[Rfam]
c-di-GMP-I riboswitch aptamer: an 87-nucleotide sequence from Eubacterium pyruvativorans. Taxonomically the source falls in Eubacterium (Bacteria, Bacillota, Clostridia, Eubacteriaceae). The base pairs follow the family's consensus structure, which is taken from published work. Gene Ontology term of the family: cyclic-di-GMP binding. A search with the family's covariance model found it, with a score of 59 bits.
RNA sequence: AAGUGAAAAGAGCAAAUCAGCAGUGAUGCUGAGACGCAAAACUAUAGGGUCUCGCCCGUGAACCGUGCGAGACAGCCAGCUGCCGGA
Numbered sequence: 001a002a003g004u005g006a007a008a009a010g011a012g013c014a015a016a017u018c019a020g021c022a023g024u025g026a027u028g029c030u031g032a033g034a035c036g037c038a039a040a041a042c043u044a045u046a047g048g049g050u051c052u053c054g055c056c057c058g059u060g061a062a063c064c065g066u067g068c069g070a071g072a073c074a075g076c077c078a079g080c081u082g083c084c085g086g087a
Stems, first nucleotide, its partner, number of pairs: 012037002017032006040081001042079002047077002049073007